[Rfam]
RNA sequence: AUGUGCCUGGCUCCCUGUAUGCCAUUUGCAGAGCCCACCGACCGUCGAUGGCCUCCGUGGAUGGCGUAUGAGGAGCCAUGCAUAU
Numbered sequence: 001a002u003g004u005g006c007c008u009g010g011c012u013c014c015c016u017g018u019a020u021g022c023c024a025u026u027u028g029c030a031g032a033g034c035c036c037a038c039c040g041a042c043c044g045u046c047g048a049u050g051g052c053c054u055c056c057g058u059g060g061a062u063g064g065c066g067u068a069u070g071a072g073g074a075g076c077c078a079u080g081c082a083u084a085u
Stems, first nucleotide, its partner, number of pairs: 001085006008078007016070009027059003
RNA: mir-160 microRNA precursor family
Organism: Acer yangbiense